[Rfam]
RNA sequence: ACCGCUGAGCCAUCUCUCCAGCCCUGGCACUACUGAUUUUUAGAAAUGUUAUAUCAGGGGGCUGGAGAGAUGGCUCAGCGGU
Numbered sequence: 001a002c003c004g005c006u007g008a009g010c011c012a013u014c015u016c017u018c019c020a021g022c023c024c025u026g027g028c029a030c031u032a033c034u035g036a037u038u039u040u041u042a043g044a045a046a047u048g049u050u051a052u053a054u055c056a057g058g059g060g061g062c063u064g065g066a067g068a069g070a071u072g073g074c075u076c077a078g079c080g081g082u
Base pairs, nucleotide, nucleotide: 002081003080004079005078006077007076008075009074010073011072012071013070014069015068016067017066018065019064020063021062022061023060024059
The family of this 82-nucleotide RNA sequence from Jaculus jaculus is "mir-3473 microRNA precursor family". The organism belongs to Jaculus, within Eukaryota. Rfam links the family to the GO terms RISC complex, miRNA-mediated post-transcriptional gene silencing and cellular response to mechanical stimulus. The match comes from Rfam's covariance-model search (75 bits). The family has 5 seed sequences and 1,094 matches in Rfam 15.1.